[Rfam]
RNA sequence: AUGGCGUGGCAGGAGGGGAGGAUCUGGGGAUGCUAACCCUAAUGGCUGUGGGUGCGCUCACCGCGAACGUCCGCUGUUUUACUCGCUGACUUUCAGCGGACGAGGGGAGUGGCUCGGGGGAGGGGCGGAAGGGGGUCCGCUAUGGAAAAAAAAACCAAACCCAAAACCAAAAAACGUCAGCGAGGGGUUCUCCUCACCUCGGCCCGUCCUGGGGUCCCCGUGUGUCUCCCACCGCAAGCGGGGGCACUCCGCAGGGGCUCCCGCCGCCGCACAUCCUUGAGGCCGCGGUCGGCCGGCACCCGCUAAUGCCGCCGCGAAGAGUUCGUCUCUGUCAGCCUUAGCGGCAGCCGGGAGCGAAAGGACUCGUCCCCCCGCACCGGGAGAUUCCAGCACAACAAAAAGGAGGGUGCCCGUGGUCCACGCGCCGCGCUCCCUUCCCGUGGGGCGCGUGCAGCCGGGCUCGCUCCGACACGC
Numbered sequence: 001a002u003g004g005c006g007u008g009g010c011a012g013g014a015g016g017g018g019a020g021g022a023u024c025u026g027g028g029g030a031u032g033c034u035a036a037c038c039c040u041a042a043u044g045g046c047u048g049u050g051g052g053u054g055c056g057c058u059c060a061c062c063g064c065g066a067a068c069g070u071c072c073g074c075u076g077u078u079u080u081a082c083u084c085g086c087u088g089a090c091u092u093u094c095a096g097c098g099g100a101c102g103a104g105g106g107g108a109g110u111g112g113c114u115c116g117g118g119g120g121a122g123g124g125g126c127g128g129a130a131g132g133g134g135g136u137c138c139g140c141u142a143u144g145g146a147a148a149a150a151a152a153a154a155c156c157a158a159a160c161c162c163a164a165a166a167c168c169a170a171a172a173a174a175c176g177u178c179a180g181c182g183a184g185g186g187g188u189u190c191u192c193c194u195c196a197c198c199u200c201g202g203c204c205c206g207u208c209c210u211g212g213g214g215u216c217c218c219c220g221u222g223u224g225u226c227u228c229c230c231a232c233c234g235c236a237a238g239c240g241g242g243g244g245c246a247c248u249c250c251g252c253a254g255g256g257g258c259u260c261c262c263g264c265c266g267c268c269g270c271a272c273a274u275c276c277u278u279g280a281g282g283c284c285g286c287g288g289u290c291g292g293c294c295g296g297c298a299c300c301c302g303c304u305a306a307u308g309c310c311g312c313c314g315c316g317a318a319g320a321g322u323u324c325g326u327c328u329c330u331g332u333c334a335g336c337c338u339u340a341g342c343g344g345c346a347g348c349c350g351g352g353a354g355c356g357a358a359a360g361g362a363c364u365c366g367u368c369c370c371c372c373c374g375c376a377c378c379g380g381g382a383g384a385u386u387c388c389a390g391c392a393c394a395a396c397a398a399a400a401a402g403g404a405g406g407g408u409g410c411c412c413g414u415g416g417u418c419c420a421c422g423c424g425c426c427g428c429g430c431u432c433c434c435u436u437c438c439c440g441u442g443g444g445g446c447g448c449g450u451g452c453a454g455c456c457g458g459g460c461u462c463g464c465u466c467c468g469a470c471a472c473g474c
Stems, first nucleotide, its partner, number of pairs: 005206002008204003012200002015197001017195002020190005056110004068102009085181006091174003209390007241370005246364001248362002257355007266345005284316005290311004295304003318330004403466003407462001409460005425454001427452003432445004
RNA: Vertebrate telomerase RNA